The record is a 102-nucleotide RNA from Litchfieldia stipae, which matches "Purine riboswitch aptamer" in Rfam. A search with the family's covariance model found it, with a score of 87 bits. On this family, see Batey et al., Nature 2004: "Structure of a natural guanine-responsive riboswitch complexed with the metabolite hypoxanthine".

RNA sequence: CAUUAUAAUAAAGAAAUUCAUCGUAUAGUAUUGGGGAUAUGGCCCAAAAGUUUCUACCGAGCUACCGUAAAUGGCUUGACUACGAUUAAUAAUCCAAAAAAG
Numbered sequence: 001c002a003u004u005a006u007a008a009u010a011a012a013g014a015a016a017u018u019c020a021u022c023g024u025a026u027a028g029u030a031u032u033g034g035g036g037a038u039a040u041g042g043c044c045c046a047a048a049a050g051u052u053u054c055u056a057c058c059g060a061g062c063u064a065c066c067g068u069a070a071a072u073g074g075c076u077u078g079a080c081u082a083c084g085a086u087u088a089a090u091a092a093u094c095c096a097a098a099a100a101a102g
Stems, first nucleotide, its partner, number of pairs: 018088001020086006029049001031047005058078007